Notes:
The family of this 164-nucleotide RNA from Syntrophus aciditrophicus is "Group II catalytic intron D1-D4-3". Rfam describes the family as follows. Group II introns are found in rRNA, tRNA and mRNA of organelles in fungi, plants and protists, and also in mRNA in bacteria. Lineage of the source: Bacteria > Pseudomonadati > Syntrophia > Syntrophaceae > Syntrophus aciditrophicus. It is one of the family's seed sequences.
[Rfam]
RNA sequence: GGAACCAUAGGGCACCGUGCGAAGGACGCCGGAGUGCAAAGCUAUAAGCUGACGAACAGAAACAGCAUGCAAGGCCGAGUCUCCUUCAAAUCAGCACAACAUGACAAAGUCCUGGAUUCUGGAGAUACGUUGAAUGCUGCGGUUGCAGAGUCACAGUUCACGUU
Numbered sequence: 001g002g003a004a005c006c007a008u009a010g011g012g013c014a015c016c017g018u019g020c021g022a023a024g025g026a027c028g029c030c031g032g033a034g035u036g037c038a039a040a041g042c043u044a045u046a047a048g049c050u051g052a053c054g055a056a057c058a059g060a061a062a063c064a065g066c067a068u069g070c071a072a073g074g075c076c077g078a079g080u081c082u083c084c085u086u087c088a089a090a091u092c093a094g095c096a097c098a099a100c101a102u103g104a105c106a107a108a109g110u111c112c113u114g115g116a117u118u119c120u121g122g123a124g125a126u127a128c129g130u131u132g133a134a135u136g137c138u139g140c141g142g143u144u145g146c147a148g149a150g151u152c153a154c155a156g157u158u159c160a161c162g163u164u
Base pairs, nucleotide, nucleotide: 001016002015005012006011028164030162031161036157037156041151042150043149045147047144048143049142050141051140063139064138065137066136067135068134074131076129079126080125081124082123083122084121087109091104092103093102